[Rfam]
RNA sequence: AUGCCAGGUUAAGCUUAUAGGUAAGGAAAAUAAUGAUUCAAGAUAAUGCCCAAAUCCUCACUGCUAAUGUGAGAUGAAUUUAUGAGCGAGUAAAGGUAACCCCUAAGGUGACCUGCCUACUGUGUGGGAUGCCUGGGAGUCGCAAUCUGCCUG
Number, nucleotide and partner (000 for none) at each position: 001a000002u000003g000004c026005c025006a000007g000008g000009u024010u023011a022012a000013g000014c000015u000016u000017a000018u000019a000020g000021g000022u011023a010024a009025g005026g004027a000028a000029a000030a000031u000032a000033a000034u000035g056036a055037u054038u053039c000040a000041a000042g049043a000044u000045a000046a000047u000048g000049c042050c000051c000052a000053a038054a037055u036056c035057c073058u072059c071060a070061c069062u000063g000064c000065u000066a000067a000068u000069g061070u060071g059072a058073g057074a000075u000076g000077a000078a000079u000080u000081u000082a000083u000084g000085a000086g000087c153088g152089a000090g150091u149092a000093a000094a148095g147096g146097u145098a000099a000100c142101c000102c000103c137104u136105a000106a134107g133108g132109u131110g130111a000112c128113c127114u126115g125116c124117c000118u000119a000120c000121u000122g000123u000124g116125u115126g114127g113128g112129a000130u110131g109132c108133c107134u106135g000136g104137g103138a000139g000140u000141c000142g100143c000144a000145a097146u096147c095148u094149g091150c090151c000152u088153g087